Source information: A member of the RNA family "mir-216 microRNA precursor family" from Xiphophorus maculatus, 75 nucleotides long. Pairs were carried over by alignment from the consensus structure, which was predicted with WAR.
RNA sequence: UAACUGGGUAAUCUCUGCAGGCAACUGUGAUUAUGCAUUUUGUUCUCACAAUCACCUGGAGAGAUUCUGCAGUUU
Numbered sequence: 001u002a003a004c005u006g007g008g009u010a011a012u013c014u015c016u017g018c019a020g021g022c023a024a025c026u027g028u029g030a031u032u033a034u035g036c037a038u039u040u041u042g043u044u045c046u047c048a049c050a051a052u053c054a055c056c057u058g059g060a061g062a063g064a065u066u067c068u069g070c071a072g073u074u075u
Stems, first nucleotide, its partner, number of pairs: 003073004010066007020057002024052001026050005